Mason-Pfizer monkey virus packaging signal: a 274-nucleotide sequence from Macaca fascicularis.
By type it is a cis-regulatory element.
NCBI's taxonomy places the organism under Eukaryota, Metazoa, Bilateria, Theria, Macaca.
This family represents a group of sequences that are related to the Mason-Pfizer monkey virus (MPMV) packaging signal. The packaging signal is located in the 5' UTR and is required for specific RNA encapsidation.
It scores 200 bits against the family's covariance model.
[Rfam]
RNA sequence: UGGCGCCUGGACAGGGACCUGAAACGAGGGACUCCGUGAGGAAGAGGACGCCAGCACGGUCGACCGCUAACGAAGACAAAGGAGUCAAACUCUUCCAAUCACCAAGGGAACCUGCCGCCAGAAUCGAAGGUAAGUGACGUCCAAAUGGGACAAGAAUUAAGCCAACAUCAAAUAUAUGUAGGACAAUUAAAAGAGGCUUUAAAGAUACGAGGAGUAAAGGUUAAAGGUAAUGAUUUGUUUAAAUUUUUUUAUUUUGUAAAAGACACUUGCCCUU
Numbered sequence: 001u002g003g004c005g006c007c008u009g010g011a012c013a014g015g016g017a018c019c020u021g022a023a024a025c026g027a028g029g030g031a032c033u034c035c036g037u038g039a040g041g042a043a044g045a046g047g048a049c050g051c052c053a054g055c056a057c058g059g060u061c062g063a064c065c066g067c068u069a070a071c072g073a074a075g076a077c078a079a080a081g082g083a084g085u086c087a088a089a090c091u092c093u094u095c096c097a098a099u100c101a102c103c104a105a106g107g108g109a110a111c112c113u114g115c116c117g118c119c120a121g122a123a124u125c126g127a128a129g130g131u132a133a134g135u136g137a138c139g140u141c142c143a144a145a146u147g148g149g150a151c152a153a154g155a156a157u158u159a160a161g162c163c164a165a166c167a168u169c170a171a172a173u174a175u176a177u178g179u180a181g182g183a184c185a186a187u188u189a190a191a192a193g194a195g196g197c198u199u200u201a202a203a204g205a206u207a208c209g210a211g212g213a214g215u216a217a218a219g220g221u222u223a224a225a226g227g228u229a230a231u232g233a234u235u236u237g238u239u240u241a242a243a244u245u246u247u248u249u250u251a252u253u254u255u256g257u258a259a260a261a262g263a264c265a266c267u268u269g270c271c272c273u274u
Base pairs, nucleotide, nucleotide: 006029007028008027014025035047037045089131090130091129093128094127099123100121103117106116107115139151140149141148142147158201159200160199161197162196163195209249210248211247212246213245214244215243218236219235220234221233222232223231259274260273262271264269